[Rfam]
mir-9/mir-79 microRNA precursor family: a 73-nucleotide RNA sequence from Ophiophagus hannah. The literature on the family includes a 2002 paper in Curr Biol by Lagos-Quintana et al., "Identification of tissue-specific microRNAs from mouse". Rfam's curators put it in the seed alignment. Pairs were carried over by alignment from the consensus structure, which was predicted with RNAalifold. Its family is annotated with miRNA-mediated post-transcriptional gene silencing and RISC complex in the Gene Ontology.

RNA sequence: UUAUUUUUACUUUCGGUUAUCUAGCUUUAUGAAGACUUGAGCCCACUCAUACAGCUAGAUAACCAAAGAUAAC
Numbered sequence: 001u002u003a004u005u006u007u008u009a010c011u012u013u014c015g016g017u018u019a020u021c022u023a024g025c026u027u028u029a030u031g032a033a034g035a036c037u038u039g040a041g042c043c044c045a046c047u048c049a050u051a052c053a054g055c056u057a058g059a060u061a062a063c064c065a066a067a068g069a070u071a072a073c
Stems, first nucleotide, its partner, number of pairs: 007072003011068003015064012028051005